[Rfam]
RNA sequence: AUACCUUUCUCGGCCUUUUUUGCUAAGAUAUCUGUUCUUAUCAGUUUAAUAUCUGUUAUGUGGGCCAUUGAUUUACAUGAUAUUAAAUUCAUUUUUUGAGGAAUAAGGCCCACUACAGUAGCUUGCUGCUGGGGUCCUCGAGCGUCGCCUAGGCGUUGCACUGCUGCUUUGUUUUGGUGCACCCAAU
Numbered sequence: 001a002u003a004c005c006u007u008u009c010u011c012g013g014c015c016u017u018u019u020u021u022g023c024u025a026a027g028a029u030a031u032c033u034g035u036u037c038u039u040a041u042c043a044g045u046u047u048a049a050u051a052u053c054u055g056u057u058a059u060g061u062g063g064g065c066c067a068u069u070g071a072u073u074u075a076c077a078u079g080a081u082a083u084u085a086a087a088u089u090c091a092u093u094u095u096u097u098g099a100g101g102a103a104u105a106a107g108g109c110c111c112a113c114u115a116c117a118g119u120a121g122c123u124u125g126c127u128g129c130u131g132g133g134g135u136c137c138u139c140g141a142g143c144g145u146c147g148c149c150u151a152g153g154c155g156u157u158g159c160a161c162u163g164c165u166g167c168u169u170u171g172u173u174u175u176g177g178u179g180c181a182c183c184c185a186a187u
Stems, first nucleotide, its partner, number of pairs: 008028003012024003039058002042055003060076005066070001105138001107136005118129004142180006149171001151169004
RNA: U2 spliceosomal RNA